[Rfam]
RNA sequence: AGCUGGUCCAGUGGUGUUGGGUUAUCAGAAUUUGUUGACAUUAGUGUCACUAAACUUGAUAUACAACCCCCUACUGCUAAAGUUAACUGGCUUUAA
Numbered sequence: 001a002g003c004u005g006g007u008c009c010a011g012u013g014g015u016g017u018u019g020g021g022u023u024a025u026c027a028g029a030a031u032u033u034g035u036u037g038a039c040a041u042u043a044g045u046g047u048c049a050c051u052a053a054a055c056u057u058g059a060u061a062u063a064c065a066a067c068c069c070c071c072u073a074c075u076g077c078u079a080a081a082g083u084u085a086a087c088u089g090g091c092u093u094u095a096a
Base pairs, nucleotide, nucleotide: 001092002091003090004089005088006087007086010084011083015079016075018073019072020071021070027060030057
RNA: Y RNA
Organism: Theropithecus gelada